[Rfam]
RNA sequence: UUUAGGCGCCAAUGAUGUUUCCAUUCAAAAUGUCUGAACCUGUCUGAAGCAUCCCAGUGAUGCAACCUCUAUGUGGUGCUGAGGCUCCUCUACCA
Numbered sequence: 001u002u003u004a005g006g007c008g009c010c011a012a013u014g015a016u017g018u019u020u021c022c023a024u025u026c027a028a029a030a031u032g033u034c035u036g037a038a039c040c041u042g043u044c045u046g047a048a049g050c051a052u053c054c055c056a057g058u059g060a061u062g063c064a065a066c067c068u069c070u071a072u073g074u075g076g077u078g079c080u081g082a083g084g085c086u087c088c089u090c091u092a093c094c095a
Stems, first nucleotide, its partner, number of pairs: 004089003008085003
RNA: Small nucleolar RNA SNORD91 family